Rfam assigns this 138-nucleotide sequence from Aspergillus versicolor to the family "A. fumigatus sRNA Afu_254". Taxonomically the source falls in Aspergillus versicolor (Eukaryota, Fungi, leotiomyceta, Aspergillus subgen. Nidulantes). Pairs were carried over by alignment from the consensus structure, which was predicted with WAR. Rfam 15.1 lists 185 matches to the family in 142 species. The match comes from Rfam's covariance-model search (81 bits).
[Rfam]
RNA sequence: AUUCAAUCCAAACAAGCAUCUACUUCGUCCGGUUCAAACACCACAGACCCAAACCAGUCAACAUGUCUCCCUGCAACUGCAACUGCUGCUCCGGCGACUGCAACUCUUGCUCCUGCAGCAGCUGCACCGUAUGUCACC
Numbered sequence: 001a002u003u004c005a006a007u008c009c010a011a012a013c014a015a016g017c018a019u020c021u022a023c024u025u026c027g028u029c030c031g032g033u034u035c036a037a038a039c040a041c042c043a044c045a046g047a048c049c050c051a052a053a054c055c056a057g058u059c060a061a062c063a064u065g066u067c068u069c070c071c072u073g074c075a076a077c078u079g080c081a082a083c084u085g086c087u088g089c090u091c092c093g094g095c096g097a098c099u100g101c102a103a104c105u106c107u108u109g110c111u112c113c114u115g116c117a118g119c120a121g122c123u124g125c126a127c128c129g130u131a132u133g134u135c136a137c138c
Stems, first nucleotide, its partner, number of pairs: 072096003079089003100125003109116002